The family of this 86-nucleotide RNA from Hibiscus syriacus is "MIR397 microRNA precursor family".
Lineage of the source: Eukaryota > Embryophyta > Spermatophyta > Magnoliopsida > Hibiscus.
Rfam 15.1 lists 496 matches to the family in 218 species.
Its family is annotated with RISC complex and miRNA-mediated post-transcriptional gene silencing in the Gene Ontology.
On this family, see Wu et al., Plant Cell 2009: "Rice MicroRNA effector complexes and targets".

[Rfam]
RNA sequence: GGAAUGAACAUCAUUGAGUGCAGCGUUGAUGAAUUAUGUUACUUUCUGUGAUGAAUUCACCAGCGCUGCAUUCAAUCAUGUUUACU
Numbered sequence: 001g002g003a004a005u006g007a008a009c010a011u012c013a014u015u016g017a018g019u020g021c022a023g024c025g026u027u028g029a030u031g032a033a034u035u036a037u038g039u040u041a042c043u044u045u046c047u048g049u050g051a052u053g054a055a056u057u058c059a060c061c062a063g064c065g066c067u068g069c070a071u072u073c074a075a076u077c078a079u080g081u082u083u084a085c086u
Stems, first nucleotide, its partner, number of pairs: 006083006013076016030059006